[Rfam]
RNA sequence: AGUGGUCACGGUCACUAUAAAAAGGACUUUAAGCUGUGAGCGUUUCCAUCCUGCAUAUUUUACAGGAUGGGAGGUAGCC
Numbered sequence: 001a002g003u004g005g006u007c008a009c010g011g012u013c014a015c016u017a018u019a020a021a022a023a024g025g026a027c028u029u030u031a032a033g034c035u036g037u038g039a040g041c042g043u044u045u046c047c048a049u050c051c052u053g054c055a056u057a058u059u060u061u062a063c064a065g066g067a068u069g070g071g072a073g074g075u076a077g078c079c
Base pairs, nucleotide, nucleotide: 001016002015003014004013006039007038008037009036010035011034025079027077028076033041043073044072045071046070047069048068049067050066051065052064053063
Shown here is a 79-nucleotide RNA from Sporofaciens musculi, a member of the family "Pistol ribozyme". Rfam links the family to the GO term catalytic activity. A search with the family's covariance model found it, with a score of 54 bits. On this family, see Weinberg et al., Nat Chem Biol 2015: "New classes of self-cleaving ribozymes revealed by comparative genomics analysis".